Vertebrate telomerase RNA: a 457-nucleotide RNA sequence from Neopipo cinnamomea.
The family's RNA type in Rfam is non-coding RNA gene.
A search with the family's covariance model found it, with a score of 157 bits.
The organism belongs to Neopipo, within Eukaryota.
About the family: Telomerase is a ribonucleoprotein reverse transcriptase that synthesises telomeric DNA. Telomerase RNAs differ greatly in sequence and structure between vertebrates, ciliates and yeasts, but they share a 5' pseudoknot structure close to the template sequence. Vertebrate telomerase RNAs have a 3' H/ACA snoRNA-like domain.
The base pairs follow the family's consensus structure, which is taken from published work.
Rfam links the family to the GO terms telomerase activity, telomere maintenance via telomerase and telomerase catalytic core complex.

[Rfam]
RNA sequence: AGUACGUGCCGUGGGGGGGAGGCCCCUUCUUAUCUAACCCUAAUGGCGCCCGCGCUCCCCGCGCCCGCCCGCUGUUUUAUUCGCUGACUUUCAGCGGGCGAGGGGAGCGCCCGGGAUGGGGGGGCGGGGGGAGGAGGAGGAGGGAAGAGGUCCGGCAUUAAAAAACGUCAGCGGGAGGGCUCCCCACCCUGGCUCGUCCUGGGGUCCCCGUCCCGCAGCCCGGAGCGUUCCCGCCGCCACGCCGCGCGGAGGCCGCGGUCGGCCGGUCACGGCCAUUGCCGCCGCGAAGAGCUCGUCUCUGUCAGCCUCGGCGGAGGCCGGGAGCGGAAAGACGGUGUCCCCUCAGCCCCGGGCAGUCGAGGGGUCCCAGCAGAGCAAACAGGGAGCGGCGCCGCCGGGUUGGGUAGCCGCGGCUCCCUCAACCGUGGGGUGCGCGGCCGGCGCCGCCCCGACAUCC
Number, nucleotide and partner (000 for none) at each position: 001a000002g000003u000004a000005c196006g195007u000008g193009c192010c191011g190012u000013g000014g188015g187016g185017g184018g183019g000020a000021g181022g180023c179024c178025c177026c000027u000028u000029c000030u000031u000032a000033u000034c000035u000036a000037a000038c000039c000040c000041u000042a000043a000044u000045g000046g000047c000048g000049c000050c000051c000052g000053c000054g108055c107056u106057c105058c104059c000060c000061g000062c000063g000064c000065c000066c100067g099068c098069c097070c096071g095072c094073u093074g092075u000076u000077u000078u000079a000080u000081u000082c000083g172084c171085u170086g169087a168088c167089u165090u164091u163092c074093a073094g072095c071096g070097g069098g068099c067100g066101a000102g000103g000104g058105g057106a056107g055108c054109g000110c000111c000112c000113g000114g000115g000116a000117u000118g000119g000120g000121g000122g000123g000124g000125c000126g000127g000128g000129g000130g000131g000132a000133g000134g000135a000136g000137g000138a000139g000140g000141a000142g000143g000144g000145a000146a000147g000148a000149g000150g000151u000152c000153c000154g000155g000156c000157a000158u000159u000160a000161a000162a000163a091164a090165a089166c000167g088168u087169c086170a085171g084172c083173g000174g000175g000176a000177g025178g024179g023180c022181u021182c000183c018184c017185c016186a000187c015188c014189c000190u011191g010192g009193c008194u000195c006196g005197u000198c000199c370200u369201g368202g367203g366204g365205u364206c000207c000208c000209c000210g000211u000212c000213c000214c000215g000216c000217a000218g000219c000220c000221c000222g000223g000224a000225g000226c000227g000228u000229u000230c000231c000232c322233g000234c320235c000236g318237c317238c000239a000240c313241g312242c311243c310244g309245c000246g000247c000248g000249g000250a000251g000252g000253c000254c286255g285256c284257g283258g282259u000260c281261g280262g279263c278264c000265g274266g273267u272268c000269a000270c000271g000272g267273c266274c265275a000276u000277u000278g263279c262280c261281g260282c258283c257284g256285c255286g254287a000288a300289g299290a298291g297292c000293u000294c000295g000296u000297c291298u290299c289300u288301g000302u000303c000304a000305g000306c000307c000308u000309c244310g243311g242312c241313g240314g000315a000316g000317g237318c236319c000320g234321g000322g232323a000324g000325c000326g000327g000328a000329a000330a000331g000332a000333c000334g000335g000336u000337g000338u000339c000340c000341c000342c000343u000344c000345a000346g000347c000348c000349c000350c000351g000352g000353g000354c000355a000356g000357u000358c000359g000360a000361g000362g000363g000364g205365u204366c203367c202368c201369a200370g199371c000372a000373g000374a000375g000376c000377a000378a000379a000380c000381a000382g000383g000384g449385a000386g447387c446388g445389g444390c443391g442392c441393c440394g000395c000396c000397g000398g000399g000400u000401u000402g000403g000404g000405u000406a000407g000408c437409c436410g435411c434412g433413g000414c000415u430416c429417c428418c427419u000420c000421a000422a000423c000424c000425g000426u000427g418428g417429g416430g415431u000432g000433c412434g411435c410436g409437g408438c000439c000440g393441g392442c391443g390444c389445c388446g387447c386448c000449c384450c000451g000452a000453c000454a000455u000456c000457c000